Rfam assigns this 90-nucleotide RNA sequence from Peribacillus asahii to the family "c-di-GMP-I riboswitch aptamer". GEMM was predicted in a large-scale screen for bacterial structured RNA regulatory elements.
[Rfam]
RNA sequence: UACCUAUAAGGGCAAAUUUUACGAAAGUAAAAGACGCAAAGCCACGGGCCUAAAGCAACAAAUAGUUGUCAUGGCAGCCGGGUUGCCAAG
Numbered sequence: 001u002a003c004c005u006a007u008a009a010g011g012g013c014a015a016a017u018u019u020u021a022c023g024a025a026a027g028u029a030a031a032a033g034a035c036g037c038a039a040a041g042c043c044a045c046g047g048g049c050c051u052a053a054a055g056c057a058a059c060a061a062a063u064a065g066u067u068g069u070c071a072u073g074g075c076a077g078c079c080g081g082g083u084u085g086c087c088a089a090g
Base pairs, nucleotide, nucleotide: 012037013036017032018031019030020029021028022027040084041083042082043081045080046079047078048075049074050073055069056068057067058066
Lineage of the source: Bacteria > Bacillati > Bacillota > Bacilli > Peribacillus. It scores 85 bits against the family's covariance model.